[Rfam]
RNA sequence: GGUUUGUAGGCAGUGUAGUUAGCUGAUUGUAUCCAUUACAAUCACUAACUUCACUGCCAUCAAAAC
Dot-bracket structure: ..((((..((.((((.((((((.((((((((.....)))))))))))))).)))).))..))))..
About this RNA:
The record is a 66-nucleotide RNA from Strigops habroptila, which matches "mir-34 microRNA precursor family" in Rfam. The match comes from Rfam's covariance-model search (73 bits). Rfam's curators write: Human mir-34a was discovered computationally and later experimentally verified. The mature sequence is excised from the 5' arm of the hairpin. The organism belongs to Strigops, within Eukaryota. The literature on the family includes a 2003 paper in Science by Lim et al., "Vertebrate microRNA genes".